[Rfam]
RNA: Bacterial large subunit ribosomal RNA, nucleotides 2825 to 3086
Organism: Streptomonospora alba
RNA sequence: GGAGACUUGUGAAGGGCUGUCCCUAGUACGAGAGGACCGGGACGGACGAACCGCUGGUGUGCCAGUUGUUCCGCCAGGGGCAUGGCUGGUUGGCUACGUUCGGGAGAGAUAACCGCUGAAAGCAUCUAAGUGGGAAGCUUGCUUCGAGAUGAGGUCUCCUGCCCUGUGGUGGGGGUAAGGCCGCCAGGUGAUGACUGGGUUGAUAGGCCGGGUGUGGAAGCCUUGUGAGGGGUGGAGCUGACCGGUACUAAUAGGCCGAGGG
Numbered sequence: 001g002g003a004g005a006c007u008u009g010u011g012a013a014g015g016g017c018u019g020u021c022c023c024u025a026g027u028a029c030g031a032g033a034g035g036a037c038c039g040g041g042a043c044g045g046a047c048g049a050a051c052c053g054c055u056g057g058u059g060u061g062c063c064a065g066u067u068g069u070u071c072c073g074c075c076a077g078g079g080g081c082a083u084g085g086c087u088g089g090u091u092g093g094c095u096a097c098g099u100u101c102g103g104g105a106g107a108g109a110u111a112a113c114c115g116c117u118g119a120a121a122g123c124a125u126c127u128a129a130g131u132g133g134g135a136a137g138c139u140u141g142c143u144u145c146g147a148g149a150u151g152a153g154g155u156c157u158c159c160u161g162c163c164c165u166g167u168g169g170u171g172g173g174g175g176u177a178a179g180g181c182c183g184c185c186a187g188g189u190g191a192u193g194a195c196u197g198g199g200u201u202g203a204u205a206g207g208c209c210g211g212g213u214g215u216g217g218a219a220g221c222c223u224u225g226u227g228a229g230g231g232g233u234g235g236a237g238c239u240g241a242c243c244g245g246u247a248c249u250a251a252u253a254g255g256c257c258g259a260g261g262g
Stems, first nucleotide, its partner, number of pairs: 001159008011145004017045007047102005055096003062089005067082006106140003113133005162174003176259001179257004184198004204250003207246005214238001220233005